[Rfam]
RNA sequence: CGUCUGUUUCAGGGCGAGGUGCAAGUCCUCACUGGCGGUAAAGUCCGCGAAUCGGCUAAGGCCGAUUGACUGGGUGAAAUUCCCAGACCAACGGUUACAGUCCGGAUGGAAGAAACAUGCG
Numbered sequence: 001c002g003u004c005u006g007u008u009u010c011a012g013g014g015c016g017a018g019g020u021g022c023a024a025g026u027c028c029u030c031a032c033u034g035g036c037g038g039u040a041a042a043g044u045c046c047g048c049g050a051a052u053c054g055g056c057u058a059a060g061g062c063c064g065a066u067u068g069a070c071u072g073g074g075u076g077a078a079a080u081u082c083c084c085a086g087a088c089c090a091a092c093g094g095u096u097a098c099a100g101u102c103c104g105g106a107u108g109g110a111a112g113a114a115a116c117a118u119g120c121g
Stems, first nucleotide, its partner, number of pairs: 003119001005117006017029003031101002033090002035048004043088002051066003070086005092104003
Rfam assigns this 121-nucleotide sequence from Youxingia wuxianensis to the family "FMN riboswitch aptamer (RFN element)". It scores 106 bits against the family's covariance model. Pairs were carried over by alignment from the consensus structure, which is taken from published work. The source organism's lineage runs through Bacteria, Bacillati, Bacillota, Oscillospiraceae and Youxingia. The literature on the family includes a 2002 paper in Nucleic Acids Res by Vitreschak et al., "Regulation of riboflavin biosynthesis and transport genes in bacteria by transcriptional and translational attenuation".